[Rfam]
RNA sequence: CCCUAGCCCUGAUUGCAGCGGCAUCCUUUUUGGUUGCGGCCGGAGCGAAGCGCAGGCCGUAACCAAAAAGAUAUAGCGAAAAGCAGGAAAUAGC
Numbered sequence: 001c002c003c004u005a006g007c008c009c010u011g012a013u014u015g016c017a018g019c020g021g022c023a024u025c026c027u028u029u030u031u032g033g034u035u036g037c038g039g040c041c042g043g044a045g046c047g048a049a050g051c052g053c054a055g056g057c058c059g060u061a062a063c064c065a066a067a068a069a070g071a072u073a074u075a076g077c078g079a080a081a082a083g084c085a086g087g088a089a090a091u092a093g094c
Stems, first nucleotide, its partner, number of pairs: 009086003013082002018077002023072003029067013
Overview:
The record is a 94-nucleotide sequence from Chryseobacterium sp. RU37D, which matches "Flavo-1 RNA" in Rfam. Rfam classes the family as a small RNA. A search with the family's covariance model found it, with a score of 69 bits. Taxonomically the source falls in Chryseobacterium (Bacteria, Pseudomonadati, Flavobacteriia, Flavobacteriales).